[Rfam]
RNA sequence: GUAUAAGGCUAAUAUAAGUAGCUCUUAAUAUAACUUUGGCCGUAAUCAGAGUGAACCUCUGGUUAUAAAUCAUCAAAUUGACGGGAACACCCUAAAACUAUCUUAACCAACCAAGUAUAGUAAUAUAAUUUGGGGCGCAGGUAAUGACUCGCGGUAUGGUAAAAUCAAGAUUAGAUAUUACAAUGGGCAAUCCGCAGCCAAGCUCCAUCAUUCUUUAGCUUUUAUAAUAAAAUAAAUGUUUUAUUGCUAUGCAUGUCGGCUUAAAAUAUUAUUUUUAUAGCAGGAUGAGGGUGUGCAGUUCAUCGACUAAAUGUUGGUUGGCUGGGCUAUUGUUUCUAGUAACAUAGUCCUGGCUUAAGAUAUAGUCAGACCCCACUCGAAAGAGUGCA
Numbered sequence: 001g002u003a004u005a006a007g008g009c010u011a012a013u014a015u016a017a018g019u020a021g022c023u024c025u026u027a028a029u030a031u032a033a034c035u036u037u038g039g040c041c042g043u044a045a046u047c048a049g050a051g052u053g054a055a056c057c058u059c060u061g062g063u064u065a066u067a068a069a070u071c072a073u074c075a076a077a078u079u080g081a082c083g084g085g086a087a088c089a090c091c092c093u094a095a096a097a098c099u100a101u102c103u104u105a106a107c108c109a110a111c112c113a114a115g116u117a118u119a120g121u122a123a124u125a126u127a128a129u130u131u132g133g134g135g136c137g138c139a140g141g142u143a144a145u146g147a148c149u150c151g152c153g154g155u156a157u158g159g160u161a162a163a164a165u166c167a168a169g170a171u172u173a174g175a176u177a178u179u180a181c182a183a184u185g186g187g188c189a190a191u192c193c194g195c196a197g198c199c200a201a202g203c204u205c206c207a208u209c210a211u212u213c214u215u216u217a218g219c220u221u222u223u224a225u226a227a228u229a230a231a232a233u234a235a236a237u238g239u240u241u242u243a244u245u246g247c248u249a250u251g252c253a254u255g256u257c258g259g260c261u262u263a264a265a266a267u268a269u270u271a272u273u274u275u276u277a278u279a280g281c282a283g284g285a286u287g288a289g290g291g292u293g294u295g296c297a298g299u300u301c302a303u304c305g306a307c308u309a310a311a312u313g314u315u316g317g318u319u320g321g322c323u324g325g326g327c328u329a330u331u332g333u334u335u336c337u338a339g340u341a342a343c344a345u346a347g348u349c350c351u352g353g354c355u356u357a358a359g360a361u362a363u364a365g366u367c368a369g370a371c372c373c374c375a376c377u378c379g380a381a382a383g384a385g386u387g388c389a
Base pairs, nucleotide, nucleotide: 005025007023008022009021010020011019013017068319069318070317071316072315074313075312079196080195082194083193084192085191090187091186092185197299198298202294203293205291209287210286211285212284213283303368305367306366307365308364309363321354322353323352324351325350326349328347374387375386376385377384378383
Notes
The family of this 389-nucleotide RNA from Rhynchosporium graminicola is "Group I catalytic intron". Group I catalytic introns are large self-splicing ribozymes. They catalyse their own excision from mRNA, tRNA and rRNA precursors in a wide range of organisms. The core secondary structure consists of 9 paired regions (P1-P9). These fold to essentially two domains - the P4-P6 domain (formed from the stacking of P5, P4, P6 and P6a helices) and the P3-P9 domain (formed from the P8, P3, P7 and P9 helices). The secondary structure mark-up for this family represents only this conserved core. Group I catalytic introns often have long ORFs inserted in loop regions. The window size for this search is chosen to minimise search time and catch the small examples. A larger window size will find more matches. Pairs were carried over by alignment from the consensus structure, which is taken from published work. Taxonomically the source falls in Rhynchosporium (Eukaryota, Opisthokonta, Fungi, sordariomyceta).